Rfam assigns this 197-nucleotide sequence from Dysosmobacter welbionis to the family "Group II catalytic intron D1-D4-5". The family has 139 seed sequences and 720 matches in Rfam 15.1. Gene Ontology term of the family: Group II intron splicing. A reference for the family is Bonen and Vogel (2001), "The ins and outs of group II introns", Trends Genet.
[Rfam]
RNA sequence: UAGAACUGAUAAUUCGAUAGGUAGAAUGACGGGGUAACGCCCUGAAAUGCCUACUCUGAUACUCCGACAGGCGGCAGAAAUGCGGUCUGAAGCUCGGUGAAGUCGGCAGAGAGUCACCGUAAUUGCGGCUGUGAUACAACGCAAACGAAAGGUCUCCAGAGGUGGAGGCUGUGACCUAUAUGCCGGGGGUCUACAAA
Numbered sequence: 001u002a003g004a005a006c007u008g009a010u011a012a013u014u015c016g017a018u019a020g021g022u023a024g025a026a027u028g029a030c031g032g033g034g035u036a037a038c039g040c041c042c043u044g045a046a047a048u049g050c051c052u053a054c055u056c057u058g059a060u061a062c063u064c065c066g067a068c069a070g071g072c073g074g075c076a077g078a079a080a081u082g083c084g085g086u087c088u089g090a091a092g093c094u095c096g097g098u099g100a101a102g103u104c105g106g107c108a109g110a111g112a113g114u115c116a117c118c119g120u121a122a123u124u125g126c127g128g129c130u131g132u133g134a135u136a137c138a139a140c141g142c143a144a145a146c147g148a149a150a151g152g153u154c155u156c157c158a159g160a161g162g163u164g165g166a167g168g169c170u171g172u173g174a175c176c177u178a179u180a181u182g183c184c185g186g187g188g189g190u191c192u193a194c195a196a197a
Stems, first nucleotide, its partner, number of pairs: 018053006031043004054189004064097004068089005074083003104185005113175005118147003124143004151170008